Shown here is a 143-nucleotide RNA from Aerobium aerolatum, a member of the family "Alphaproteobacterial sRNA ar7". The organism belongs to Aerobium aerolatum, within Bacteria. A reference for the family is del Val et al. (2012), "A survey of sRNA families in alpha-proteobacteria", RNA Biol. The pairing is the family consensus, mapped onto this sequence. The match comes from Rfam's covariance-model search (107 bits).
[Rfam]
RNA sequence: UAUCGGCAAUUAUAGCCGAGUCCGGUCCAAGGCUCGUCCCCCGCCUCACCGGACACAGCGGGAGCCUCAUCCCCCUCUCCGGGCUCCCGCAAUUGUUUGAGUAAAGGCCGCUGUGGUAUCCCCCUCCGCCACAGCGGCUCUUU
Number, nucleotide and partner (000 for none) at each position: 001u000002a000003u000004c000005g000006g000007c000008a000009a000010u000011u000012a000013u000014a000015g000016c000017c000018g000019a000020g000021u053022c052023c051024g050025g049026u048027c000028c000029a000030a000031g045032g044033c043034u000035c000036g000037u000038c000039c000040c000041c000042c000043g033044c032045c031046u000047c000048a026049c025050c024051g023052g022053a021054c000055a000056c000057a093058g090059c089060g088061g087062g086063a085064g084065c083066c082067u000068c000069a000070u000071c000072c000073c000074c000075c000076u000077c000078u000079c000080c000081g000082g066083g065084c064085u063086c062087c061088c060089g059090c058091a000092a000093u057094u000095g000096u000097u000098u000099g000100a000101g000102u000103a000104a000105a139106g000107g000108c137109c136110g135111c134112u133113g132114u131115g130116g129117u128118a000119u000120c000121c000122c000123c000124c000125u000126c000127c000128g117129c116130c115131a114132c113133a112134g111135c110136g109137g108138c000139u105140c000141u000142u000143u000